A member of the RNA family "Small nucleolar RNA SNORA72" from Xenopus laevis, 133 nucleotides long. Rfam describes the family as follows. U72 is a member of the H/ACA class of snoRNAs. The snoRNA gene is located in intron 4 of the ribosomal L30 protein gene in human, mouse and chicken. For this family Rfam cites "The family of box ACA small nucleolar RNAs is defined by an evolutionarily conserved secondary structure and ubiquitous sequence elements essential for RNA accumulation" (Ganot et al., Genes Dev, 1997). Rfam 15.1 lists 1,541 matches to the family in 547 species. By type it is an H/ACA-box small nucleolar RNA. Pairs were carried over by alignment from the consensus structure, which was predicted with PFOLD. The organism belongs to Xenopus, within Eukaryota.
RNA sequence: UUGCGAAUAUAUUCUCGCUGGAUUGAUCUGGUUGUGGUCAGAUCCAGGCUAGACAUUCGCUAGAUUGAUACUAGACAGUGUCCUCAGAGCUGGCUUUUAGUCUGGUUCUGAUACUUUCAUGCUAGUUACAGCU
Numbered sequence: 001u002u003g004c005g006a007a008u009a010u011a012u013u014c015u016c017g018c019u020g021g022a023u024u025g026a027u028c029u030g031g032u033u034g035u036g037g038u039c040a041g042a043u044c045c046a047g048g049c050u051a052g053a054c055a056u057u058c059g060c061u062a063g064a065u066u067g068a069u070a071c072u073a074g075a076c077a078g079u080g081u082c083c084u085c086a087g088a089g090c091u092g093g094c095u096u097u098u099a100g101u102c103u104g105g106u107u108c109u110g111a112u113a114c115u116u117u118c119a120u121g122c123u124a125g126u127u128a129c130a131g132c133u
Stems, first nucleotide, its partner, number of pairs: 003060003018047006024040005070126004076121001084111010